[Rfam]
RNA sequence: UGAGGCAAGCAGAAGCACCCGCUUCUCACCUGAUUGACGCGCAAAGCAGUUGGCAGGUUGCAAAUCCUUAUUGUAAAGGGAGACGUGUGGGUGCAGUAUGUACCGACACUUUUUUUAUAUU
Numbered sequence: 001u002g003a004g005g006c007a008a009g010c011a012g013a014a015g016c017a018c019c020c021g022c023u024u025c026u027c028a029c030c031u032g033a034u035u036g037a038c039g040c041g042c043a044a045a046g047c048a049g050u051u052g053g054c055a056g057g058u059u060g061c062a063a064a065u066c067c068u069u070a071u072u073g074u075a076a077a078g079g080g081a082g083a084c085g086u087g088u089g090g091g092u093g094c095a096g097u098a099u100g101u102a103c104c105g106a107c108a109c110u111u112u113u114u115u116u117a118u119a120u121u
Stems, first nucleotide, its partner, number of pairs: 011026006028058003036051003039047002086108003090104006
Rfam assigns this 121-nucleotide sequence from Sediminibacillus albus to the family "Ribosomal protein L20 leader". The literature on the family includes a 1994 paper in Prog Nucleic Acid Res Mol Biol by Zengel and Lindahl, "Diverse mechanisms for regulating ribosomal protein synthesis in Escherichia coli". It is annotated as a cis-regulatory leader. This family is a putative r-protein leader autoregulatory structure found in B. subtilis and other low-GC Gram-positive bacteria. It is located in the 5' untranslated regions of mRNAs encoding initiation factor 3 followed by ribosomal proteins L35 and L20 (infC-rpmI-rplT). A Rho-independent transcription terminator structure that is probably involved in regulation is included at the 3' end. The organism belongs to Sediminibacillus, within Bacteria.